[Rfam]
RNA sequence: CCUCGGGCUCCCUGGGACAGAAACAGAGGAACUGCGCCCCAGGGAGAGUGCGCUGAGCUCCCUGAAGGGCUGCAGCUCUCAUGGCUGGACCCGGGAGCAGCU
Numbered sequence: 001c002c003u004c005g006g007g008c009u010c011c012c013u014g015g016g017a018c019a020g021a022a023a024c025a026g027a028g029g030a031a032c033u034g035c036g037c038c039c040c041a042g043g044g045a046g047a048g049u050g051c052g053c054u055g056a057g058c059u060c061c062c063u064g065a066a067g068g069g070c071u072g073c074a075g076c077u078c079u080c081a082u083g084g085c086u087g088g089a090c091c092c093g094g095g096a097g098c099a100g101c102u
Base pairs, nucleotide, nucleotide: 007098008097009096010095011094012093014091015090018087019086022082028078029077032075033074034073035072036070037069038068039067041063042062043061044060045059046058049055050054
This 102-nucleotide RNA sequence from Nyctereutes procyonoides belongs to the Rfam family "mir-8904 microRNA precursor family". The organism belongs to Nyctereutes, within Eukaryota. The match comes from Rfam's covariance-model search (102 bits).